[Rfam]
The record is a 179-nucleotide sequence from Ceratopteris richardii, which matches "Small nucleolar RNA ZL1" in Rfam.
The family has 5 seed sequences and 300 matches in Rfam 15.1.
Lineage of the source: Eukaryota > Viridiplantae > Streptophytina > Euphyllophyta > Ceratopteris.
About the family: Host gene TRRAP. Predicted target U2@U47.
For this family Rfam cites "Insights into snoRNA biogenesis and processing from PAR-CLIP of snoRNA core proteins and small RNA sequencing" (Kishore et al., Genome Biol, 2013).
RNA sequence: GCAUAUGCAUAUGCAUGUGUAUUCAUAUGCAUAUGCAUAUGCAUGUGUAUGCAUAUGCAUGUGUAUGCAUAUGCAUGUGUAUGCAUAUGCAUGUGUAUGCAUAUGCAUGUGUGUAUGCAUAUGCACGUGUGUAUGCAUAUGCAUGUUUGUAUGCAUAUGCAUGUGCAUGUGUAUGCAUA
Numbered sequence: 001g002c003a004u005a006u007g008c009a010u011a012u013g014c015a016u017g018u019g020u021a022u023u024c025a026u027a028u029g030c031a032u033a034u035g036c037a038u039a040u041g042c043a044u045g046u047g048u049a050u051g052c053a054u055a056u057g058c059a060u061g062u063g064u065a066u067g068c069a070u071a072u073g074c075a076u077g078u079g080u081a082u083g084c085a086u087a088u089g090c091a092u093g094u095g096u097a098u099g100c101a102u103a104u105g106c107a108u109g110u111g112u113g114u115a116u117g118c119a120u121a122u123g124c125a126c127g128u129g130u131g132u133a134u135g136c137a138u139a140u141g142c143a144u145g146u147u148u149g150u151a152u153g154c155a156u157a158u159g160c161a162u163g164u165g166c167a168u169g170u171g172u173a174u175g176c177a178u179a
Stems, first nucleotide, its partner, number of pairs: 004179007014169003024165006032103004037098001039096001041094012061074005105118004121134005136159004141154004